[Rfam]
RNA sequence: GGAAACUGCUAGGGGCGCUUUACGGCUGAGAAAAGGAAUUAUCCUUAGUCCCUUGGAACCUGAUCUGGAUAAUGCCAGCGCAGGGAAGUAGUCGAGGACUCUG
Numbered sequence: 001g002g003a004a005a006c007u008g009c010u011a012g013g014g015g016c017g018c019u020u021u022a023c024g025g026c027u028g029a030g031a032a033a034a035g036g037a038a039u040u041a042u043c044c045u046u047a048g049u050c051c052c053u054u055g056g057a058a059c060c061u062g063a064u065c066u067g068g069a070u071a072a073u074g075c076c077a078g079c080g081c082a083g084g085g086a087a088g089u090a091g092u093c094g095a096g097g098a099c100u101c102u103g
Base pairs, nucleotide, nucleotide: 006091007090008089009088010087011053012052013051014050017026018025019024033046034045035044036043037042059084060083061082062081065078066077067076068075

TPP riboswitch aptamer (THI element): a 103-nucleotide sequence from Virgibacillus indicus. The match comes from Rfam's covariance-model search (77 bits). Taxonomically the source falls in Virgibacillus (Bacteria, Bacillota, Bacilli, Bacillaceae). Rfam's curators write: Vitamin B(1) in its active form thiamin pyrophosphate (TPP) is an essential coenzyme that is synthesised by coupling of pyrimidine and thiazole moieties in bacteria. The base pairs follow the family's consensus structure, which is taken from published work.